[Rfam]
RNA sequence: CAGGCCGACGUGGGGCGGUGGACCCAGGCUUCUGGAGCUGAAGCCUGAUGUUCCCCGUCCCGCAGCGGCCU
Dot-bracket structure: .((((((..(((((((((.((((.((((((((.......))))))))..)))).)))))))))..))))))
Numbered sequence: 001c002a003g004g005c006c007g008a009c010g011u012g013g014g015g016c017g018g019u020g021g022a023c024c025c026a027g028g029c030u031u032c033u034g035g036a037g038c039u040g041a042a043g044c045c046u047g048a049u050g051u052u053c054c055c056c057g058u059c060c061c062g063c064a065g066c067g068g069c070c071u
Stems, first nucleotide, its partner, number of pairs: 002071006010063009020053004025047008

The record is a 71-nucleotide RNA sequence from Rattus norvegicus, which matches "mir-5132 microRNA precursor family" in Rfam. Rfam 15.1 lists 2 matches to the family in 2 species. The sequence is in the family's curated seed alignment. Gene Ontology terms of the family: RISC complex and miRNA-mediated post-transcriptional gene silencing.